The record is a 338-nucleotide RNA from Nonlabens tegetincola, which matches "Bacterial RNase P class A" in Rfam.
RNA sequence: UGCGCAGGUCGCCUUAUCGUUCCAGUAUUUACAGGAAAGGAAAGUCCGGACACCACAGGAUAGCAUAACGGUUAAUGGCCGUCGUUGUUGUUAUUCUUUCGCGAAAGCGUAAUCGUAAUAGCAAUAGGACUAGUGCAACAGAAAGUAUGUACAGAUAAUGCUGUAGUGAAAUCAGGUAAACUCUAUGCGGUGCAAUGUCAUGUAGGUCAGAGUUUGAGCGUUAUCCGCGCGAUUUUGAUGGGUAGGCAGAUAGAGGUAAGUAGUAAUACUUAUCCCAGAUAAAUGAUAAGGGUCUCAAUAAAGAGAUACAGAAUCCGGCUUAUAGACCUGCUUUUUUA
Number, nucleotide and partner (000 for none) at each position: 001u000002g333003c000004g331005c330006a329007g328008g327009u326010c325011g323012c291013c290014u289015u288016a287017u286018c285019g000020u037021u036022c035023c034024a000025g032026u031027a000028u000029u000030u000031a026032c025033a000034g023035g022036a021037a020038a000039g000040g000041a000042a321043a320044g319045u000046c318047c317048g316049g315050a314051c192052a191053c190054c189055a000056c000057a000058g226059g225060a224061u223062a000063g188064c187065a186066u185067a184068a082069c081070g080071g079072u078073u000074a000075a000076u000077g000078g072079c071080c070081g069082u068083c127084g125085u124086u123087g122088u121089u120090g119091u118092u117093a116094u115095u000096c000097u000098u000099u000100c000101g000102c000103g000104a000105a000106a000107g000108c000109g000110u000111a000112a000113u000114c000115g094116u093117a092118a091119u090120a089121g088122c087123a086124a085125u084126a000127g083128g183129a182130c000131u000132a000133g181134u180135g177136c176137a000138a000139c000140a000141g000142a000143a000144a000145g000146u000147a000148u000149g000150u000151a164152c163153a162154g161155a000156u000157a000158a000159u000160g000161c154162u153163g152164u151165a000166g000167u000168g000169a000170a000171a000172u000173c000174a000175g000176g136177u135178a000179a000180a134181c133182u129183c128184u067185a066186u065187g064188c063189g054190g053191u052192g051193c000194a000195a000196u248197g247198u246199c245200a000201u000202g000203u000204a000205g000206g239207u238208c237209a236210g235211a234212g000213u000214u000215u000216g000217a000218g230219c229220g228221u227222u000223a061224u060225c059226c058227g221228c220229g219230c218231g000232a000233u000234u211235u210236u209237g208238a207239u206240g000241g000242g000243u000244a000245g199246g198247c197248a196249g000250a000251u000252a000253g000254a000255g274256g273257u272258a271259a270260g269261u268262a267263g000264u000265a000266a000267u262268a261269c260270u259271u258272a257273u256274c255275c000276c000277a000278g000279a000280u000281a000282a000283a000284u000285g018286a017287u016288a015289a014290g013291g012292g000293u000294c000295u000296c000297a000298a000299u000300a000301a000302a000303g000304a000305g000306a000307u000308a000309c000310a000311g000312a000313a000314u050315c049316c048317g047318g046319c044320u043321u042322a000323u011324a000325g010326a009327c008328c007329u006330g005331c004332u000333u002334u000335u000336u000337u000338a000